[Rfam]
The family of this 217-nucleotide RNA sequence from Ectothiorhodospira magna is "Group II catalytic intron D1-D4-6". Rfam links the family to the GO term Group II intron splicing. On this family, see Bonen and Vogel, Trends Genet 2001: "The ins and outs of group II introns". Group II introns are found in rRNA, tRNA and mRNA of organelles in fungi, plants and protists, and also in mRNA in bacteria. The organism belongs to Ectothiorhodospira, within Bacteria.
RNA sequence: AAAGUCCCGAACCGGUAAGGCAGACCCGCCACCGGAACCGAGUGUUGCGUGGGCCAUGGGCGACCUAGUCUGCGAAGCGUACACAGGGGGCGUGCAGGCCGUGUGAUUGAGCCUCGAAAUUCCCGAAACGUGGGGCCGACGUCAUCUGAGGUGCGGAAGGCAACAGAGUGCAGACCGAGAGGGUCGGGUCUGCACUCCCCGCCGGGGUCUGAGAGCA
Numbered sequence: 001a002a003a004g005u006c007c008c009g010a011a012c013c014g015g016u017a018a019g020g021c022a023g024a025c026c027c028g029c030c031a032c033c034g035g036a037a038c039c040g041a042g043u044g045u046u047g048c049g050u051g052g053g054c055c056a057u058g059g060g061c062g063a064c065c066u067a068g069u070c071u072g073c074g075a076a077g078c079g080u081a082c083a084c085a086g087g088g089g090g091c092g093u094g095c096a097g098g099c100c101g102u103g104u105g106a107u108u109g110a111g112c113c114u115c116g117a118a119a120u121u122c123c124c125g126a127a128a129c130g131u132g133g134g135g136c137c138g139a140c141g142u143c144a145u146c147u148g149a150g151g152u153g154c155g156g157a158a159g160g161c162a163a164c165a166g167a168g169u170g171c172a173g174a175c176c177g178a179g180a181g182g183g184u185c186g187g188g189u190c191u192g193c194a195c196u197c198c199c200c201g202c203c204g205g206g207g208u209c210u211g212a213g214a215g216c217a
Stems, first nucleotide, its partner, number of pairs: 012035004019030003026183001038087002042084004046079002048074007058065002108211001109209001111208006130202005135161003140155003166197011